[Rfam]
RNA: Lysine riboswitch aptamer
RNA sequence: AAAUGAGAUAGAGGCGCGGAUGCGACGAGACCAUGGGAGCCGACGGGCGAGGAUCGUGGGGGAGGCAAGUCCGCCGAACUCCCUGGUCAGGUAUGGGCAGGGGGUGGGUCCGUGGGGAAUACCCACGGGACUGUCCGCGGAAUUUUCCGCGGGGGCGCUAUCCGCUUA
Numbered sequence: 001a002a003a004u005g006a007g008a009u010a011g012a013g014g015c016g017c018g019g020a021u022g023c024g025a026c027g028a029g030a031c032c033a034u035g036g037g038a039g040c041c042g043a044c045g046g047g048c049g050a051g052g053a054u055c056g057u058g059g060g061g062g063a064g065g066c067a068a069g070u071c072c073g074c075c076g077a078a079c080u081c082c083c084u085g086g087u088c089a090g091g092u093a094u095g096g097g098c099a100g101g102g103g104g105u106g107g108g109u110c111c112g113u114g115g116g117g118a119a120u121a122c123c124c125a126c127g128g129g130a131c132u133g134u135c136c137g138c139g140g141a142a143u144u145u146u147c148c149g150c151g152g153g154g155g156c157g158c159u160a161u162c163c164g165c166u167u168a
Stems, first nucleotide, its partner, number of pairs: 007162005016074006024066001031059006078105008087096003106132002109129008134153007